[Rfam]
A member of the RNA family "U11 spliceosomal RNA" from Leptobrachium leishanense, 131 nucleotides long.
Pairs were carried over by alignment from the consensus structure, which is taken from published work.
It scores 82 bits against the family's covariance model.
The family has 72 seed sequences and 2,595 matches in Rfam 15.1.
NCBI's taxonomy places the organism under Eukaryota, Euteleostomi, Batrachia, Pelobatoidea, Leptobrachium.
By type it is a spliceosomal small nuclear RNA.

RNA sequence: AAAAAGGGCUUGUGCCAUGUAUGGCACAUCGCGAUCUCCUGCAUGGGGAUUGUGGUGCGGAAUCGAUAGAGAUUUCGGAAGCAUAAUUUUUAUAACAGGGGCUGCCUGUGAGCUGCUCUCCGGACGACCCG
Dot-bracket structure: .......((((.(((((....)))))((((((((((((.......))))))))))))(((((((......))))))).))))................((.(.(.(((.(((.....)))))).)).))..